[Rfam]
RNA sequence: UUGAAGAAAAGGCAAACUUGCUGAAAGGCAAGGACGCAAAGUCACGGAUCUAACGUAUAAUAUUGGGCGUCAUUACCGAUGUAAGGAAGUUUUACUGUCAUACACACCGCCUGGAGAAGAUACUAUGAUGGCCGGAUUGCCUAG
Numbered sequence: 001u002u003g004a005a006g007a008a009a010a011g012g013c014a015a016a017c018u019u020g021c022u023g024a025a026a027g028g029c030a031a032g033g034a035c036g037c038a039a040a041g042u043c044a045c046g047g048a049u050c051u052a053a054c055g056u057a058u059a060a061u062a063u064u065g066g067g068c069g070u071c072a073u074u075a076c077c078g079a080u081g082u083a084a085g086g087a088a089g090u091u092u093u094a095c096u097g098u099c100a101u102a103c104a105c106a107c108c109g110c111c112u113g114g115a116g117a118a119g120a121u122a123c124u125a126u127g128a129u130g131g132c133c134g135g136a137u138u139g140c141c142u143a144g
Base pairs, nucleotide, nucleotide: 012037013036017032018031019030020029021028022027040138041137042136043135045134046133047132048129049128050127055123056122057121058120
Annotation:
The record is a 144-nucleotide RNA sequence from Bacillus mesophilum, which matches "c-di-GMP-I riboswitch aptamer" in Rfam. Taxonomically the source falls in Bacillus (Bacteria, Bacillota, Caryophanales, Bacillaceae). A search with the family's covariance model found it, with a score of 73 bits. The base pairs follow the family's consensus structure, which is taken from published work.